[Rfam]
RNA sequence: UACUUAUCCAGAAAGACCGAGGGACUGGGCCCGACGACGUCUUGGCAACCUGAAAUAAAACAAGGUGCCAACUCCCAUUCCGUAGCUCCGGCUCCGGGAGAAGAUAAGUG
Numbered sequence: 001u002a003c004u005u006a007u008c009c010a011g012a013a014a015g016a017c018c019g020a021g022g023g024a025c026u027g028g029g030c031c032c033g034a035c036g037a038c039g040u041c042u043u044g045g046c047a048a049c050c051u052g053a054a055a056u057a058a059a060a061c062a063a064g065g066u067g068c069c070a071a072c073u074c075c076c077a078u079u080c081c082g083u084a085g086c087u088c089c090g091g092c093u094c095c096g097g098g099a100g101a102a103g104a105u106a107a108g109u110g
Stems, first nucleotide, its partner, number of pairs: 001110008013043005021032003026077004044069004049065002052061001073102001078099005
A member of the RNA family "SAM riboswitch aptamer (S box leader)" from Hymenobacter cellulosilyticus, 110 nucleotides long. The match comes from Rfam's covariance-model search (71 bits). Pairs were carried over by alignment from the consensus structure, which is taken from published work.